The family of this 80-nucleotide sequence from Alligator sinensis is "Mammalian CPEB3 ribozyme". The family's consensus secondary structure is taken from published work.

[Rfam]
RNA sequence: AGAGGUCACAAGUUUAAGGCCAUAGCAGAAGCAUUCACAGUGUGGUCCUGCCAGAUUCCAAUGAAUCUGUGAAUUCUGCU
Numbered sequence: 001a002g003a004g005g006u007c008a009c010a011a012g013u014u015u016a017a018g019g020c021c022a023u024a025g026c027a028g029a030a031g032c033a034u035u036c037a038c039a040g041u042g043u044g045g046u047c048c049u050g051c052c053a054g055a056u057u058c059c060a061a062u063g064a065a066u067c068u069g070u071g072a073a074u075u076c077u078g079c080u
Stems, first nucleotide, its partner, number of pairs: 018047004024080007031043003052069007